RNA sequence: CCCCUCUCUAAUCCUUGCUACCUGGGUGAGAGUGCUGUGUGAAUGCAAUGCACCUGGGCAAGGAUUCUGAGAGUGAGAGC
Number, nucleotide and partner (000 for none) at each position: 001c000002c000003c000004c000005u000006c000007u000008c000009u000010a066011a065012u064013c063014c062015u061016u060017g000018c000019u000020a000021c058022c057023u056024g055025g054026g053027u052028g051029a000030g000031a000032g000033u047034g046035c045036u000037g000038u000039g000040u000041g000042a000043a000044u000045g035046c034047a033048a000049u000050g000051c028052a027053c026054c025055u024056g023057g022058g021059c000060a016061a015062g014063g013064a012065u011066u010067c000068u000069g000070a000071g000072a000073g000074u000075g000076a000077g000078a000079g000080c000
RNA: mir-500 microRNA precursor family
Organism: Sus scrofa